[Rfam]
A member of the RNA family "small nucleolar RNA snoR127", 138 nucleotides long. Gene Ontology terms of the family: RNA processing and nucleolus. For this family Rfam cites "Mining small RNA sequencing data: a new approach to identify small nucleolar RNAs in Arabidopsis" (Chen and Wu, Nucleic Acids Res, 2009). The family has 3 seed sequences and 273 matches in Rfam 15.1. It is annotated as a C/D-box small nucleolar RNA.
RNA sequence: CUGGAAUGAUGAUGCUUAGCCAAAUCAGAUAUGUGCUCCAAGAGGCAUUUUUCUGUGGAACCUUGUUCAGCAGAUGGUGUGCCUCUUGUUGUAGUGCGUCUUAGACGAUAUCACAGGGAAUGGUUAUUGCUGACCAGA
Numbered sequence: 001c002u003g004g005a006a007u008g009a010u011g012a013u014g015c016u017u018a019g020c021c022a023a024a025u026c027a028g029a030u031a032u033g034u035g036c037u038c039c040a041a042g043a044g045g046c047a048u049u050u051u052u053c054u055g056u057g058g059a060a061c062c063u064u065g066u067u068c069a070g071c072a073g074a075u076g077g078u079g080u081g082c083c084u085c086u087u088g089u090u091g092u093a094g095u096g097c098g099u100c101u102u103a104g105a106c107g108a109u110a111u112c113a114c115a116g117g118g119a120a121u122g123g124u125u126a127u128u129g130c131u132g133a134c135c136a137g138a
Base pairs, nucleotide, nucleotide: 001137002136003135004134